Shown here is a 98-nucleotide RNA from Peptostreptococcus stomatis, a member of the family "Purine riboswitch aptamer". It scores 65 bits against the family's covariance model.
[Rfam]
RNA sequence: AAUUAUAAAAACAUAGAUACUCAUAUAAGCCUCUAAUAUGGUGAGGUGUUUCUACCUAUAGCCCUAAACUAUAGUCUAUGAGUUGGAAUUGGAAGACU
Numbered sequence: 001a002a003u004u005a006u007a008a009a010a011a012c013a014u015a016g017a018u019a020c021u022c023a024u025a026u027a028a029g030c031c032u033c034u035a036a037u038a039u040g041g042u043g044a045g046g047u048g049u050u051u052c053u054a055c056c057u058a059u060a061g062c063c064c065u066a067a068a069c070u071a072u073a074g075u076c077u078a079u080g081a082g083u084u085g086g087a088a089u090u091g092g093a094a095g096a097c098u
Stems, first nucleotide, its partner, number of pairs: 019083007030046004056074006
Pairs were carried over by alignment from the consensus structure, which is taken from published work.